[Rfam]
Nucleotides: 132
Stems, first nucleotide, its partner, number of pairs: 035062005043054004072125006085110001086108006093101001
Number, partner (000 for none) and nucleotide at each position: 001000u002000c003000u004000u005000c006000c007000c008000c009000c010000c011000u012000c013000a014000c015000u016000u017000u018000g019000u020000c021000a022000a023000u024000u025000a026000g027000a028000c029000a030000u031000u032000u033000c034000u035062u036061g037060u038059c039058u040000u041000a042000g043054u044053u045052g046051g047000c048000c049000a050000u051046u052045c053044a054043g055000g056000u057000g058039g059038g060037g061036u062035a063000a064000a065000g066000u067000c068000a069000a070000u071000a072125u073124c074123c075122u076121u077120u078000u079000a080000a081000a082000a083000c084000c085110c086108a087107a088106c089105c090104a091103g092000a093101u094000u095000a096000u097000g098000u099000u100000u101093a102000c103091c104090u105089g106088g107087u108086u109000u110085g111000g112000a113000u114000c115000c116000u117000g118000u119000c120077a121076g122075a123074g124073g125072a126000a127000a128000c129000a130000u131000g132000u